[Rfam]
RNA sequence: GCCGGGCUCAGUAACGAGGGCCUGUAACCAGAGUUGGGGUAUUAAGGUGUUGAGACAUUGUCGCGGCCCACUUGUUUGGGUCUAGGGAGGCUCACUUCUGGCCCAUCUGUUCCAAGCCAAGAGCAGAAGAGCCUUGUGGUUUGGGCGAAGGCCAUAUUAUAUGGUUCUUCGCCCAAAUGACAAGGUACCGCGGAGGGCACCGCGUGAGGCUGGCUUCACAGAGCAGCGAUCACCUCCCUCUUCUGGCAGUGGAAGGAUAACGGGUCAGUGCUACCUGGGCCCCAACUUGGUAGAAUGGGCGGUCUCUAAUCGAACCAACACUUUU
Numbered sequence: 001g002c003c004g005g006g007c008u009c010a011g012u013a014a015c016g017a018g019g020g021c022c023u024g025u026a027a028c029c030a031g032a033g034u035u036g037g038g039g040u041a042u043u044a045a046g047g048u049g050u051u052g053a054g055a056c057a058u059u060g061u062c063g064c065g066g067c068c069c070a071c072u073u074g075u076u077u078g079g080g081u082c083u084a085g086g087g088a089g090g091c092u093c094a095c096u097u098c099u100g101g102c103c104c105a106u107c108u109g110u111u112c113c114a115a116g117c118c119a120a121g122a123g124c125a126g127a128a129g130a131g132c133c134u135u136g137u138g139g140u141u142u143g144g145g146c147g148a149a150g151g152c153c154a155u156a157u158u159a160u161a162u163g164g165u166u167c168u169u170c171g172c173c174c175a176a177a178u179g180a181c182a183a184g185g186u187a188c189c190g191c192g193g194a195g196g197g198c199a200c201c202g203c204g205u206g207a208g209g210c211u212g213g214c215u216u217c218a219c220a221g222a223g224c225a226g227c228g229a230u231c232a233c234c235u236c237c238c239u240c241u242u243c244u245g246g247c248a249g250u251g252g253a254a255g256g257a258u259a260a261c262g263g264g265u266c267a268g269u270g271c272u273a274c275c276u277g278g279g280c281c282c283c284a285a286c287u288u289g290g291u292a293g294a295a296u297g298g299g300c301g302g303u304c305u306c307u308a309a310u311c312g313a314a315c316c317a318a319c320a321c322u323u324u325u
Stems, first nucleotide, its partner, number of pairs: 001040003004023006028037003044324009056312001058309003063303002066300001068298003072294002076290002078282009089272002092270001098268007106260001107256002110254005116247004121242003129167005139158001141156001144153003168190001192237005203228003210221003